The record is a 73-nucleotide RNA from Chlorocebus sabaeus, which matches "Small nucleolar RNA SNORD113/SNORD114 family" in Rfam. A search with the family's covariance model found it, with a score of 40 bits. Its family is annotated with nucleolus and RNA processing in the Gene Ontology. The family's consensus secondary structure is taken from published work. The imprinted human domain at 14q32 contains two clusters of tandemly repeated small nucleolar RNAs named 14q(I) and 14q(II) snoRNAs. These two clusters are named SNORD113 and SNORD114 respectively in the HGNC approved gene symbol nomenclature. Taxonomically the source falls in Chlorocebus (Eukaryota, Opisthokonta, Craniata, Theria). For this family Rfam cites "Identification of tandemly-repeated C/D snoRNA genes at the imprinted human 14q32 domain reminiscent of those at the Prader-Willi/Angelman syndrome region" (Cavaille et al., Hum Mol Genet, 2002).

RNA sequence: UGGACCAAUGAUGUGAACGGAAUGCAUCUGAGUAAAAAUUAUGAUCAAUCAUUUUUGAACAACUGAGGUCCAC
Numbered sequence: 001u002g003g004a005c006c007a008a009u010g011a012u013g014u015g016a017a018c019g020g021a022a023u024g025c026a027u028c029u030g031a032g033u034a035a036a037a038a039u040u041a042u043g044a045u046c047a048a049u050c051a052u053u054u055u056u057g058a059a060c061a062a063c064u065g066a067g068g069u070c071c072a073c
Base pairs, nucleotide, nucleotide: 002071003070004069005068006067